RNA sequence: GUAUCAUCUGGAACAGCGAUUCCGAUGAUAU
Numbered sequence: 001g002u003a004u005c006a007u008c009u010g011g012a013a014c015a016g017c018g019a020u021u022c023c024g025a026u027g028a029u030a031u
Stems, first nucleotide, its partner, number of pairs: 001031007009024005014018001

Notes
Rfam assigns this 31-nucleotide RNA sequence from Leptobrachium leishanense to the family "Iron response element II". It is annotated as a cis-regulatory element. For this family Rfam cites "Accommodating variety in iron-responsive elements: Crystal structure of transferrin receptor 1 B IRE bound to iron regulatory protein 1" (Walden et al., FEBS Lett, 2012). Rfam's curators write: IRE, TFRC, SLC40A1, SDHB, SLC11A2, CDC42BPA, ACO2, ALAS2_H.SAPIENS, CDC14A, EPAS1, ALAS2, qoxD, Hao1, NDUFS1, transferrin, Aconitate. The family's consensus secondary structure is taken from published work. Its family is annotated with response to iron ion in the Gene Ontology.